[Rfam]
Rfam assigns this 62-nucleotide RNA from Methylomusa anaerophila to the family "Fluoride riboswitch aptamer (crcB RNA motif)".
A search with the family's covariance model found it, with a score of 56 bits.
Lineage of the source: Bacteria > Bacillati > Bacillota > Negativicutes > Methylomusa.
RNA sequence: AAAAAGUAGGGCGAUGGAGUUCGCCAUAACCCCGCUUUGGCGGUGAUGACUCCUACCAUUUG
Numbered sequence: 001a002a003a004a005a006g007u008a009g010g011g012c013g014a015u016g017g018a019g020u021u022c023g024c025c026a027u028a029a030c031c032c033c034g035c036u037u038u039g040g041c042g043g044u045g046a047u048g049a050c051u052c053c054u055a056c057c058a059u060u061u062g
Base pairs, nucleotide, nucleotide: 010025011024012023013022016053017052018051019050020049021048032043033042034041035040